[Rfam]
Ruegeria cis2 sRNA: a 153-nucleotide RNA from Tritonibacter multivorans. The base pairs follow the family's consensus structure, which was predicted with RNAfold. Lineage of the source: Bacteria > Pseudomonadati > Alphaproteobacteria > Paracoccaceae > Tritonibacter. It scores 69 bits against the family's covariance model. The family's RNA type in Rfam is small RNA. Gene Ontology term of the family: regulation of gene expression.

RNA sequence: GUCGGUCACAGUCGCCGUGUAAUUGAUAAAGACGUGGCCGCGCGCCUGAUCAAUGGUGUGAAACAGCGGGUUCCACAUAAACAGUGGCAGCAUGUAGCCGGGCAGGGUGCCCGCCAGCAUCAUUUUGCCCGAAAAGAACAUGUUGGAGCGCUG
Numbered sequence: 001g002u003c004g005g006u007c008a009c010a011g012u013c014g015c016c017g018u019g020u021a022a023u024u025g026a027u028a029a030a031g032a033c034g035u036g037g038c039c040g041c042g043c044g045c046c047u048g049a050u051c052a053a054u055g056g057u058g059u060g061a062a063a064c065a066g067c068g069g070g071u072u073c074c075a076c077a078u079a080a081a082c083a084g085u086g087g088c089a090g091c092a093u094g095u096a097g098c099c100g101g102g103c104a105g106g107g108u109g110c111c112c113g114c115c116a117g118c119a120u121c122a123u124u125u126u127g128c129c130c131g132a133a134a135a136g137a138a139c140a141u142g143u144u145g146g147a148g149c150g151c152u153g
Base pairs, nucleotide, nucleotide: 003034004033006032007031011027012026013025014024037057038056039055040054042051064153065152066151067150068149070082071081072080088145089144090143091142092141093140094139101130102129103127104126105125106124107123108122112117